The family of this 110-nucleotide RNA sequence from Bacillus sp. Y1 is "BsrF". Rfam classes the family as a small RNA. A search with the family's covariance model found it, with a score of 88 bits. The family's consensus secondary structure was predicted with WAR.
[Rfam]
RNA sequence: GCGAUGAGCUGAAUUGCAUAAGUCGAGAGACGCUCCUUUAUUGGAAUACACGAAUGUGGCGUGUAGUCUCGUCGCCGCAAUACGCAGAAAAGACUCCUACGGGGGUCUUU
Dot-bracket structure: .............((((......((((((((..((.......))..((.(((.......))).))))))).)))..))))........(((((((((....)))))))))

The organism belongs to Bacillus, within Bacteria. On this family, see Saito et al., Gene 2008: "Novel small RNA-encoding genes in the intergenic regions of Bacillus subtilis".